[Rfam]
RNA sequence: GUCAAGCCUAGGGUGGCCACCCGAACGCCGGAUACCCUCGCCGGCCGGCUUGACCUUUUCGAGGGG
Dot-bracket structure: ((((((((..((((....)))).....((((...[[[[..))))..))))))))........]]]]
RNA: int-alpA RNA